[Rfam]
RNA sequence: GGUGAUAAAGUGCAGCGUAAAAUAGACGCAACGGACCCGGGGGCAGUACCCGGCGGCUCCACCACAACCCGCCCGAAAGGACGGGCUAUGACGGGGCCGAAGCAGGAUCGACGUGUGUUCAAAGGCGCUGUUUUUGCCACGGCUGAGUAACCGUUUAUAGGCUCAAAACCACAAGUGCUAACGACAACGAUGCACUCGCGAUUGCGGCGUAA
Numbered sequence: 001g002g003u004g005a006u007a008a009a010g011u012g013c014a015g016c017g018u019a020a021a022a023u024a025g026a027c028g029c030a031a032c033g034g035a036c037c038c039g040g041g042g043g044c045a046g047u048a049c050c051c052g053g054c055g056g057c058u059c060c061a062c063c064a065c066a067a068c069c070c071g072c073c074c075g076a077a078a079g080g081a082c083g084g085g086c087u088a089u090g091a092c093g094g095g096g097c098c099g100a101a102g103c104a105g106g107a108u109c110g111a112c113g114u115g116u117g118u119u120c121a122a123a124g125g126c127g128c129u130g131u132u133u134u135u136g137c138c139a140c141g142g143c144u145g146a147g148u149a150a151c152c153g154u155u156u157a158u159a160g161g162c163u164c165a166a167a168a169c170c171a172c173a174a175g176u177g178c179u180a181a182c183g184a185c186a187a188c189g190a191u192g193c194a195c196u197c198g199c200g201a202u203u204g205c206g207g208c209g210u211a212a
Stems, first nucleotide, its partner, number of pairs: 001138005015128004027117003031114003037053005054099007139154004
Dot-bracket structure: (((((.........((((........(((.(((...(((((.......)))))(((((((................................)))))))............)))))).......)))).....)))))((((........))))..........................................................
Description:
The family of this 212-nucleotide sequence from Sphingomonas sp. Leaf357 is "permuted transfer-messenger RNA". Rfam's curators write: Bacterial tmRNA, also known as 10Sa RNA or SsrA, is named for its dual tRNA and mRNA-like properties. Its role is to liberate the mRNA from a stalled ribosome. To accomplish this part of the tmRNA is used as a reading frame that ends in a translation stop signal. The broken mRNA is replaced in the ribosome by the tmRNA and translation of the tmRNA leads to addition of a proteolysis tag to the incomplete protein enabling recognition by a protease. Rfam classes the family as a non-coding RNA gene. The match comes from Rfam's covariance-model search (134 bits).